RNA sequence: UACUGUUUGUGAUGAUCCAUUUAAAACAAUGGGAAUCUCUCUGAAAGAGGCUGAGGAAGACUCUUGCACUGAAACAGUA
Numbered sequence: 001u002a003c004u005g006u007u008u009g010u011g012a013u014g015a016u017c018c019a020u021u022u023a024a025a026a027c028a029a030u031g032g033g034a035a036u037c038u039c040u041c042u043g044a045a046a047g048a049g050g051c052u053g054a055g056g057a058a059g060a061c062u063c064u065u066g067c068a069c070u071g072a073a074a075c076a077g078u079a
Stems, first nucleotide, its partner, number of pairs: 001079007

Description
The record is a 79-nucleotide RNA sequence from Dryobates pubescens, which matches "Small nucleolar RNA SNORD79" in Rfam. NCBI's taxonomy places the organism under Eukaryota, Metazoa, Tetrapoda, Coraciimorphae, Dryobates. The family is grouped with related families in Rfam's "SNORD74 clan". Pairs were carried over by alignment from the consensus structure, which was predicted with PFOLD. snoRNA U79 or Z22 is found in intron 7 of the gas5 gene in humans and is also present in mice. Rfam links the family to the GO terms nucleolus and RNA processing.